[Rfam]
RNA: MIR1919 microRNA precursor family
Organism: Solanum lycopersicum
RNA sequence: AUCUUCUGGUAGUCCUGUCGCAGAUGACUUUCGCCCUUCUAAGGAACCACACUUUCUGUAAAUCUAAUUAAUUUGAAUUCAAUGUGGCAGGACGAGAGUCAUCUGUGACAGGAUAAUGGAAGAU
Numbered sequence: 001a002u003c004u005u006c007u008g009g010u011a012g013u014c015c016u017g018u019c020g021c022a023g024a025u026g027a028c029u030u031u032c033g034c035c036c037u038u039c040u041a042a043g044g045a046a047c048c049a050c051a052c053u054u055u056c057u058g059u060a061a062a063u064c065u066a067a068u069u070a071a072u073u074u075g076a077a078u079u080c081a082a083u084g085u086g087g088c089a090g091g092a093c094g095a096g097a098g099u100c101a102u103c104u105g106u107g108a109c110a111g112g113a114u115a116a117u118g119g120a121a122g123a124u
Stems, first nucleotide, its partner, number of pairs: 002123007012114022035091002